[Rfam]
RNA sequence: UCCCUGGUGCCCGGGUCCUCGUCGGUCAGGGCCGCGUCGCCGAAGAAGUCGCCGUCGGCCAGCACCCCGUGGUCGGUCUCGGUGUCGUAGGCGCCGGCGCCGCGCCUGGCCAGCUUGCCGUGGGCGAUGAGGACGACGGAGUCCGCGGUCGCGCCCUGCUCGACGACGACGUCACCGGGCGCGAAGUCCCGCUGCACGCACGCCGCGGCCAGUUCCCGCAGCACGUCCUCGUCCUGGAAUCCGGCGAGCGCGGGCAAUUCGCCGAGUUCCGCCGGGAUGACGCGCACCUGCGCGCCCGUCGAGUCGAAUUCCACCCGCCCGUUGCCGACGGUGUGGGUCAGCCGGCGGUUCACGCGGAACGUUCCGCCGGAGACCUGCACCCACGGCAGCACCCGCAGCAGCCACCGUGAGGUGAUCCCCUGCAUUUGCGGCGGCGUCUUCGUGGUCGUCGCGAGAUUGCGCGCCGCCGCCGUGUCCAGGCUGAGCCUGGGGUGCGCCGA
Numbered sequence: 001u002c003c004c005u006g007g008u009g010c011c012c013g014g015g016u017c018c019u020c021g022u023c024g025g026u027c028a029g030g031g032c033c034g035c036g037u038c039g040c041c042g043a044a045g046a047a048g049u050c051g052c053c054g055u056c057g058g059c060c061a062g063c064a065c066c067c068c069g070u071g072g073u074c075g076g077u078c079u080c081g082g083u084g085u086c087g088u089a090g091g092c093g094c095c096g097g098c099g100c101c102g103c104g105c106c107u108g109g110c111c112a113g114c115u116u117g118c119c120g121u122g123g124g125c126g127a128u129g130a131g132g133a134c135g136a137c138g139g140a141g142u143c144c145g146c147g148g149u150c151g152c153g154c155c156c157u158g159c160u161c162g163a164c165g166a167c168g169a170c171g172u173c174a175c176c177g178g179g180c181g182c183g184a185a186g187u188c189c190c191g192c193u194g195c196a197c198g199c200a201c202g203c204c205g206c207g208g209c210c211a212g213u214u215c216c217c218g219c220a221g222c223a224c225g226u227c228c229u230c231g232u233c234c235u236g237g238a239a240u241c242c243g244g245c246g247a248g249c250g251c252g253g254g255c256a257a258u259u260c261g262c263c264g265a266g267u268u269c270c271g272c273c274g275g276g277a278u279g280a281c282g283c284g285c286a287c288c289u290g291c292g293c294g295c296c297c298g299u300c301g302a303g304u305c306g307a308a309u310u311c312c313a314c315c316c317g318c319c320c321g322u323u324g325c326c327g328a329c330g331g332u333g334u335g336g337g338u339c340a341g342c343c344g345g346c347g348g349u350u351c352a353c354g355c356g357g358a359a360c361g362u363u364c365c366g367c368c369g370g371a372g373a374c375c376u377g378c379a380c381c382c383a384c385g386g387c388a389g390c391a392c393c394c395g396c397a398g399c400a401g402c403c404a405c406c407g408u409g410a411g412g413u414g415a416u417c418c419c420c421u422g423c424a425u426u427u428g429c430g431g432c433g434g435c436g437u438c439u440u441c442g443u444g445g446u447c448g449u450c451g452c453g454a455g456a457u458u459g460c461g462c463g464c465c466g467c468c469g470c471c472g473u474g475u476c477c478a479g480g481c482u483g484a485g486c487c488u489g490g491g492g493u494g495c496g497c498c499g500a
Stems, first nucleotide, its partner, number of pairs: 003372001006319002009316001014312002019307002027303001030300003036296001038294003043289001045224001048222002051219002054216001056102004068093003074087004108214003113209002117206002120201002122197001124195003129190001131188001141182001145180002147176003152168001155165001157163001225287002228284001231281003235277001240274001244270001247268003250262003320333004342370007352362003382422002385419002388416001390414003394409003398406001428467004434462004439455005468499002471494003475491005
RNA: Saccharopolyspora sRNA 350